[Rfam]
RNA sequence: GGGGACCUUCGGGGCCCUAAACACCAGCGGUCUUUUGGGACUGCAUGAAGCAAACGGAAGACAGAAA
Numbered sequence: 001g002g003g004g005a006c007c008u009u010c011g012g013g014g015c016c017c018u019a020a021a022c023a024c025c026a027g028c029g030g031u032c033u034u035u036u037g038g039g040a041c042u043g044c045a046u047g048a049a050g051c052a053a054a055c056g057g058a059a060g061a062c063a064g065a066a067a
Base pairs, nucleotide, nucleotide: 001018002017003016004015006014007013008012027044028043029042030041031040032039033038
RNA: L2-Alphaproteobacteria ribosomal protein leader